[Rfam]
RNA sequence: UUUUGUGCUUGAUGAGAAACAUAAAAAUUCAGUUAUCCCUGUCUGAUUCAUCUGUGCUGAUUAUUGUUGAUUCUGACACAAAC
Dot-bracket structure: .((((((.....................................................................)))))).
Numbered sequence: 001u002u003u004u005g006u007g008c009u010u011g012a013u014g015a016g017a018a019a020c021a022u023a024a025a026a027a028u029u030c031a032g033u034u035a036u037c038c039c040u041g042u043c044u045g046a047u048u049c050a051u052c053u054g055u056g057c058u059g060a061u062u063a064u065u066g067u068u069g070a071u072u073c074u075g076a077c078a079c080a081a082a083c
Stems, first nucleotide, its partner, number of pairs: 002082006
Rfam assigns this 83-nucleotide sequence from Salix brachista to the family "Small nucleolar RNA R38". The organism belongs to Salix, within Eukaryota. The family has 19 seed sequences and 2,295 matches in Rfam 15.1. By type it is a C/D-box small nucleolar RNA. About the family: snoR38 is a C/D box small nucleolar RNA conserved across yeast, human, Arabidopsis and rice. It is encoded in the intron of elongation factor-1 gamma in both pombe and cerevisiae. snoR38 guides the methylation of 2'-O-ribose sites in 28S rRNA.